[Rfam]
RNA: Glycine riboswitch aptamer
RNA sequence: CCUCUGGAAAGCCCACCGGCCUUUGCGGUUGCCGCAAGGCCCUGGCACCGACGGAGUAAGGCCCCGGCGACCGGGCGCCGAAUCUCUCAGGUCACCGGACAGAGG
Numbered sequence: 001c002c003u004c005u006g007g008a009a010a011g012c013c014c015a016c017c018g019g020c021c022u023u024u025g026c027g028g029u030u031g032c033c034g035c036a037a038g039g040c041c042c043u044g045g046c047a048c049c050g051a052c053g054g055a056g057u058a059a060g061g062c063c064c065c066g067g068c069g070a071c072c073g074g075g076c077g078c079c080g081a082a083u084c085u086c087u088c089a090g091g092u093c094a095c096c097g098g099a100c101a102g103a104g105g
Stems, first nucleotide, its partner, number of pairs: 001105006013045003047092003050088002054086003060079002